Shown here is a 115-nucleotide sequence from Momordica charantia, a member of the family "Small nucleolar RNA Z278".
Gene Ontology terms of the family: nucleolus and RNA processing.
It scores 46 bits against the family's covariance model.
Rfam describes the family as follows. snoZ278 is a C/D box small nucleolar RNA. Its methylation guide targets have not been reported.
For this family Rfam cites "The high diversity of snoRNAs in plants: identification and comparative study of 120 snoRNA genes from Oryza sativa" (Chen et al., Nucleic Acids Res, 2003).
[Rfam]
RNA sequence: GCCUAUGAUGAUUCAUUCCAUCUUGUCUGAGAUGUUGUGAAACUAAGUCCCUGUUUCAGGGAGAACCUACUUGGUCGAGCAGCAUUUGUAUGAGUUAUAUGGAUUUAGCUGAGGU
Numbered sequence: 001g002c003c004u005a006u007g008a009u010g011a012u013u014c015a016u017u018c019c020a021u022c023u024u025g026u027c028u029g030a031g032a033u034g035u036u037g038u039g040a041a042a043c044u045a046a047g048u049c050c051c052u053g054u055u056u057c058a059g060g061g062a063g064a065a066c067c068u069a070c071u072u073g074g075u076c077g078a079g080c081a082g083c084a085u086u087u088g089u090a091u092g093a094g095u096u097a098u099a100u101g102g103a104u105u106u107a108g109c110u111g112a113g114g115u
Base pairs, nucleotide, nucleotide: 001115002114003113049061050060051059052058053057